[Rfam]
RNA: Group II catalytic intron D1-D4-3
Organism: Caldibacillus debilis
RNA sequence: UCCGUCGUGAGGCGGAGUCCUAAGGAAGCCGGAGCAAACCCUCGACCGGAGGUACACAAACCCGAUCAGAGGCUGUGAAAGCCGGACGAGUCUGAACAACAAGACGAAUUCCUAAGCACCCAAAGGCUAUGGCAGAAUAUUGGGCAGGUGCAUAAAUGGAUUGUAAGGAC
Numbered sequence: 001u002c003c004g005u006c007g008u009g010a011g012g013c014g015g016a017g018u019c020c021u022a023a024g025g026a027a028g029c030c031g032g033a034g035c036a037a038a039c040c041c042u043c044g045a046c047c048g049g050a051g052g053u054a055c056a057c058a059a060a061c062c063c064g065a066u067c068a069g070a071g072g073c074u075g076u077g078a079a080a081g082c083c084g085g086a087c088g089a090g091u092c093u094g095a096a097c098a099a100c101a102a103g104a105c106g107a108a109u110u111c112c113u114a115a116g117c118a119c120c121c122a123a124a125g126g127c128u129a130u131g132g133c134a135g136a137a138u139a140u141u142g143g144g145c146a147g148g149u150g151c152a153u154a155a156a157u158g159g160a161u162u163g164u165a166a167g168g169a170c
Stems, first nucleotide, its partner, number of pairs: 001016006028170001030168001034164002039158001042155001044153001045149003049145001061144006073135002076132001078130001080128004084112003090105004